Shown here is a 148-nucleotide RNA from Salirhabdus euzebyi, a member of the family "c-di-AMP riboswitch aptamer (ydaO/yuaA leader)". Rfam describes the family as follows. This family represents a conserved RNA structure found upstream of the ydaO and yuaA genes in Bacillus subtilis and related genes in other bacteria.
RNA sequence: GCCUUUUAUUCGCUUAAUCAAAUUUCUGAGCGGGGGAACCAAUAUAGAUGGAAUUACAUCCAUCGUGGGGUGAAUCUUACCUAGUAAGAGGGGAUACUCUCAAUUCCUAAUCCGACAGCUAACCUCGUAAGCGUUCAAUUACAUGUGG
Numbered sequence: 001g002c003c004u005u006u007u008a009u010u011c012g013c014u015u016a017a018u019c020a021a022a023u024u025u026c027u028g029a030g031c032g033g034g035g036g037a038a039c040c041a042a043u044a045u046a047g048a049u050g051g052a053a054u055u056a057c058a059u060c061c062a063u064c065g066u067g068g069g070g071u072g073a074a075u076c077u078u079a080c081c082u083a084g085u086a087a088g089a090g091g092g093g094a095u096a097c098u099c100u101c102a103a104u105u106c107c108u109a110a111u112c113c114g115a116c117a118g119c120u121a122a123c124c125u126c127g128u129a130a131g132c133g134u135u136c137a138a139u140u141a142c143a144u145g146u147g148g
Stems, first nucleotide, its partner, number of pairs: 011133004018029003030128006040067002068113003076088004091107004
The match comes from Rfam's covariance-model search (86 bits).